[Rfam]
RNA: Bacterial large subunit ribosomal RNA, nucleotides 1782 to 2381
RNA sequence: AAUUAUCCGUGAAGAUGCGGAUUUUUUAUAGUUAGACGGAAAGACCCCGUGAACCUUUACUACAUCUUUAUAUUGUUAUUUUAUCUAAUAUGUGUAGAAUAAGUGGGAAUCUCUGAUACCUUCACGCUAGUGAAUUGUUUAGAUGACGUUGAAAUACCACUCUUAUUAAAAUAAAUAACUAAUAUUUCAAAAAUAGACAGUGUAUGGUUGGUAGUUUGACUGGGGCGGUCACCUCCUAAAGAGUAACGGAGGUGUACAAAGGUAAGCUCAAAUUGGAUUUAAAUAUCAAUUGUAGAGCGCAAUGGUACAAGCUUGCUUGACUGUAAGAUAGACAUAUCAAACAGGGACGAAAGUCGGUCAUAGUGAUCCGAUAAUUCUUGGUGGAAAGAUUAUCGCUCAACGGAUAAAAGGUACUCCGGGGAUAACAGGCUGAUGACUCCUAAGAGCUCCUAUCGACGGAGUCGUUUGGCACCUCGAUGUCGACUCAUCACAUCCUGGAGCUGGAGAAGGUUCCAAGGGUUCGGCUGUUCGCCGAUUAAAGUGGUACGUGAGUUGGGUUUAGAACGUCGUGAGACAGUUUGGUUCCUAUCUUCUAUAAAU
Numbered sequence: 001a002a003u004u005a006u007c008c009g010u011g012a013a014g015a016u017g018c019g020g021a022u023u024u025u026u027u028a029u030a031g032u033u034a035g036a037c038g039g040a041a042a043g044a045c046c047c048c049g050u051g052a053a054c055c056u057u058u059a060c061u062a063c064a065u066c067u068u069u070a071u072a073u074u075g076u077u078a079u080u081u082u083a084u085c086u087a088a089u090a091u092g093u094g095u096a097g098a099a100u101a102a103g104u105g106g107g108a109a110u111c112u113c114u115g116a117u118a119c120c121u122u123c124a125c126g127c128u129a130g131u132g133a134a135u136u137g138u139u140u141a142g143a144u145g146a147c148g149u150u151g152a153a154a155u156a157c158c159a160c161u162c163u164u165a166u167u168a169a170a171a172u173a174a175a176u177a178a179c180u181a182a183u184a185u186u187u188c189a190a191a192a193a194u195a196g197a198c199a200g201u202g203u204a205u206g207g208u209u210g211g212u213a214g215u216u217u218g219a220c221u222g223g224g225g226c227g228g229u230c231a232c233c234u235c236c237u238a239a240a241g242a243g244u245a246a247c248g249g250a251g252g253u254g255u256a257c258a259a260a261g262g263u264a265a266g267c268u269c270a271a272a273u274u275g276g277a278u279u280u281a282a283a284u285a286u287c288a289a290u291u292g293u294a295g296a297g298c299g300c301a302a303u304g305g306u307a308c309a310a311g312c313u314u315g316c317u318u319g320a321c322u323g324u325a326a327g328a329u330a331g332a333c334a335u336a337u338c339a340a341a342c343a344g345g346g347a348c349g350a351a352a353g354u355c356g357g358u359c360a361u362a363g364u365g366a367u368c369c370g371a372u373a374a375u376u377c378u379u380g381g382u383g384g385a386a387a388g389a390u391u392a393u394c395g396c397u398c399a400a401c402g403g404a405u406a407a408a409a410g411g412u413a414c415u416c417c418g419g420g421g422a423u424a425a426c427a428g429g430c431u432g433a434u435g436a437c438u439c440c441u442a443a444g445a446g447c448u449c450c451u452a453u454c455g456a457c458g459g460a461g462u463c464g465u466u467u468g469g470c471a472c473c474u475c476g477a478u479g480u481c482g483a484c485u486c487a488u489c490a491c492a493u494c495c496u497g498g499a500g501c502u503g504g505a506g507a508a509g510g511u512u513c514c515a516a517g518g519g520u521u522c523g524g525c526u527g528u529u530c531g532c533c534g535a536u537u538a539a540a541g542u543g544g545u546a547c548g549u550g551a552g553u554u555g556g557g558u559u560u561a562g563a564a565c566g567u568c569g570u571g572a573g574a575c576a577g578u579u580u581g582g583u584u585c586c587u588a589u590c591u592u593c594u595a596u597a598a599a600u
Base pairs, nucleotide, nucleotide: 005022006021007020008019009018025599026598027597028596029595030594031593034591035590036589038586039585046420047419048418049417051416052415053412054411055410056409057408059215060214061213062212066207067206069204070203071202072201075179076178077177078176079175080174081173084170086168087167088166089165090164092162102161103160104159105158106157109144110143111142118138119137121134122133123132124131125130183195184194185193218230219229220228221227231253232252233251234250235249236248254401256358257357262316263315264314265313266312267311268296269295271291272290273289274288275287276286297306298305321344322343323342324341327338328337329336346355347354348353369395370394371393372392373391374390375389377388378387429470430469431468433467434464435463436462437461438460439459440458444454445453481556482554483553484552485551486548487545488544489543490542491541494519495518497514498513499512500511501510502509521535522534523533524532525531562580563579564578565577566575567574568573